Annotation:
The family of this 125-nucleotide sequence from Rhizobium sp. Leaf371 is "Alphaproteobacterial ar14". It scores 97 bits against the family's covariance model. The organism belongs to Rhizobium, within Bacteria. By type it is a small RNA. The literature on the family includes a 2012 paper in RNA Biol by del Val et al., "A survey of sRNA families in alpha-proteobacteria". Smr14C2 was renamed NfeR1 (Nodule Formation Efficiency RNA) highly expressed in salt stress and during the symbiotic interaction on legume roots.
[Rfam]
RNA sequence: GUUCCUCAGACGAUCCCGUCCUCCUCCCAGGGACGUCUGUUCGAACACCGGCUCUCCUCCUCCCAGCCCGUGUUCGGUAUAUUCGGAAAAGCCUGCUGCACCUCCUCCCGCAGCAGGCUUUUUCC
Numbered sequence: 001g002u003u004c005c006u007c008a009g010a011c012g013a014u015c016c017c018g019u020c021c022u023c024c025u026c027c028c029a030g031g032g033a034c035g036u037c038u039g040u041u042c043g044a045a046c047a048c049c050g051g052c053u054c055u056c057c058u059c060c061u062c063c064c065a066g067c068c069c070g071u072g073u074u075c076g077g078u079a080u081a082u083u084c085g086g087a088a089a090a091g092c093c094u095g096c097u098g099c100a101c102c103u104c105c106u107c108c109c110g111c112a113g114c115a116g117g118c119u120u121u122u123u124c125c
Stems, first nucleotide, its partner, number of pairs: 007039006014032003043075006050068003089120011